[Rfam]
The family of this 198-nucleotide RNA from Paucimonas lemoignei is "Proteobacterial sRNA psRNA2". Rfam 15.1 lists 122 matches to the family in 36 species.

RNA sequence: GGGUUACUCCUUGGUGCUAUUAGCGCAGAUUGAUAAAGAUUCGCACCUCUAUCAAACCGGGUAACCCCACCCUUUGGCAAGGUCUUUCUGUCAGAUCAAGUCAGAACUACUACAGUUUAUUUGGCUCAAAUUUUUUAACUAGCUUUGCCCCAAUUUCCUGAUUUCCCCCCUUGCUUCUCCAUGACUCGGAUAUCGUUU
Numbered sequence: 001g002g003g004u005u006a007c008u009c010c011u012u013g014g015u016g017c018u019a020u021u022a023g024c025g026c027a028g029a030u031u032g033a034u035a036a037a038g039a040u041u042c043g044c045a046c047c048u049c050u051a052u053c054a055a056a057c058c059g060g061g062u063a064a065c066c067c068c069a070c071c072c073u074u075u076g077g078c079a080a081g082g083u084c085u086u087u088c089u090g091u092c093a094g095a096u097c098a099a100g101u102c103a104g105a106a107c108u109a110c111u112a113c114a115g116u117u118u119a120u121u122u123g124g125c126u127c128a129a130a131u132u133u134u135u136u137a138a139c140u141a142g143c144u145u146u147g148c149c150c151c152a153a154u155u156u157c158c159u160g161a162u163u164u165c166c167c168c169c170c171u172u173g174c175u176u177c178u179c180c181a182u183g184a185c186u187c188g189g190a191u192a193u194c195g196u197u198u
Stems, first nucleotide, its partner, number of pairs: 001067007009060002014026004028058001030056002032053004037048002069196002075138001077136001081131001085129002090107002092104001094102003110124003114121001156190003160187002163184002

The pairing is the family consensus, mapped onto this sequence.